[Rfam]
RNA sequence: GUGGCCCUUCGAGGACCGGUGAAAUUCCGGUACCGGCGGUAAAAGUCCGCAACCCUUGGCCCGCAACCAGGGUGGAGCUGGUGGAAUUCCAGCACCGACGGUUCAUAGUCCGGACGGGAGUUGGGCAUG
Numbered sequence: 001g002u003g004g005c006c007c008u009u010c011g012a013g014g015a016c017c018g019g020u021g022a023a024a025u026u027c028c029g030g031u032a033c034c035g036g037c038g039g040u041a042a043a044a045g046u047c048c049g050c051a052a053c054c055c056u057u058g059g060c061c062c063g064c065a066a067c068c069a070g071g072g073u074g075g076a077g078c079u080g081g082u083g084g085a086a087u088u089c090c091a092g093c094a095c096c097g098a099c100g101g102u103u104c105a106u107a108g109u110c111c112g113g114a115c116g117g118g119a120g121u122u123g124g125g126c127a128u129g
Stems, first nucleotide, its partner, number of pairs: 004126004010120001017029003032109002034097002036050004045095002054072002077093005099112003
RNA: FMN riboswitch aptamer (RFN element)
Organism: Coprothermobacter proteolyticus